A member of the RNA family "Selenocysteine transfer RNA" from Sulfitobacter pontiacus, 91 nucleotides long. The organism belongs to Sulfitobacter, within Bacteria. A reference for the family is Mizutani and Goto (2000), "Eukaryotic selenocysteine tRNA has the 9/4 secondary structure", FEBS Lett.
RNA sequence: GGAGACGACCGGAGUCUGGUGGCUUCCCUGGUCUUCAAAACCAUGGACGCGUCGAUACGGCGUGUGGUGGGUUCGAUUCCCAUCCGUCUCC
Numbered sequence: 001g002g003a004g005a006c007g008a009c010c011g012g013a014g015u016c017u018g019g020u021g022g023c024u025u026c027c028c029u030g031g032u033c034u035u036c037a038a039a040a041c042c043a044u045g046g047a048c049g050c051g052u053c054g055a056u057a058c059g060g061c062g063u064g065u066g067g068u069g070g071g072u073u074c075g076a077u078u079c080c081c082a083u084c085c086g087u088c089u090c091c
Stems, first nucleotide, its partner, number of pairs: 001091007008083001011026006027045001029043004047065005068082004